[Rfam]
Rfam assigns this 156-nucleotide RNA sequence from bacterium 1XD42-8 to the family "glmS glucosamine-6-phosphate activated ribozyme aptamer". Rfam describes the family as follows. This entry contains a glucosamine-6-phosphate activated ribozyme that is found in the mRNA for GlmS. GlmS is an enzyme that uses fructose-6-phosphate and glutamine to generate glucosamine-6-phosphate. The ribozyme catalyses self cleavage of the glmS mRNA that is thought to regulate GlmS activity. Rfam links the family to the GO terms regulation of gene expression and catalytic activity. The family's RNA type in Rfam is riboswitch.
RNA sequence: AAAGUAAGUUAAGCGCCAGAGCCAUUUUAGAAUGGCUGACGAGGUGGGAGGAGAAUCGAAAAAAAUCGGCGGGUGCCUCCCCGCUUUCCUCCAAGCGCAGCCUAUCAUAAAAACCAUCUGGUAACGGAUGGGACAAAGUGCCAGGCAGGAGCCGCU
Numbered sequence: 001a002a003a004g005u006a007a008g009u010u011a012a013g014c015g016c017c018a019g020a021g022c023c024a025u026u027u028u029a030g031a032a033u034g035g036c037u038g039a040c041g042a043g044g045u046g047g048g049a050g051g052a053g054a055a056u057c058g059a060a061a062a063a064a065a066u067c068g069g070c071g072g073g074u075g076c077c078u079c080c081c082c083g084c085u086u087u088c089c090u091c092c093a094a095g096c097g098c099a100g101c102c103u104a105u106c107a108u109a110a111a112a113a114c115c116a117u118c119u120g121g122u123a124a125c126g127g128a129u130g131g132g133a134c135a136a137a138g139u140g141c142c143a144g145g146c147a148g149g150a151g152c153c154g155c156u
Base pairs, nucleotide, nucleotide: 020037021036022035023034024033025032026031047080048079049078050077051076056069057068058067059066081097083096084095085094086093100146101145102144103143106140114131115130116129117128118127119126120125